[Rfam]
RNA sequence: AUGAGUGCCUGUCCACCCCAUACUUUCCGCGGUUACGCCGCACGUCACGCCUCUCAUAUCAAUGAUGAGGCAGUGAGGCGCAACGCGACGACCGAAGUCGAGCCGCUUGCCCCGUUUGUCGGGGCGGCGGCUUUUUUA
Numbered sequence: 001a002u003g004a005g006u007g008c009c010u011g012u013c014c015a016c017c018c019c020a021u022a023c024u025u026u027c028c029g030c031g032g033u034u035a036c037g038c039c040g041c042a043c044g045u046c047a048c049g050c051c052u053c054u055c056a057u058a059u060c061a062a063u064g065a066u067g068a069g070g071c072a073g074u075g076a077g078g079c080g081c082a083a084c085g086c087g088a089c090g091a092c093c094g095a096a097g098u099c100g101a102g103c104c105g106c107u108u109g110c111c112c113c114g115u116u117u118g119u120c121g122g123g124g125c126g127g128c129g130g131c132u133u134u135u136u137u138a
Stems, first nucleotide, its partner, number of pairs: 007038002011033003014029001041087001043085003048080006089100004101132006108126006
Dot-bracket structure: ......((..((((..............).)))...))..(.(((..((((((.....................))))))..))).).((((....))))((((((.((((((.......))))))))))))......
RNA: Burkholderia sRNA 2